[Rfam]
RNA sequence: CCUAUUUUGGACUCAAGAUGUUUUGGGAUAGGUCAGGACAGCGUUGCCGAUCAAGGACUUUGCUAAGGUAACCCAUAAGGCAUUUUUUGUAUAAAGUAGAAGUCGCAAGCUUAUAGCCGUUUUGAUUGCGAGAUUUGAAUUUUAUAGUGCAAAAGGUGGCGCGUUUGGAGCAGGGGCGGAUAUUUUAUAUAUCUGGUAACGCGCAGAGCGU
Dot-bracket structure: (((((((..................)))))))..........((((((..........[.[.[...)))))).........((((((((((........................................................)))))))))).(((((....].].]....(((((.........)))))....))))).......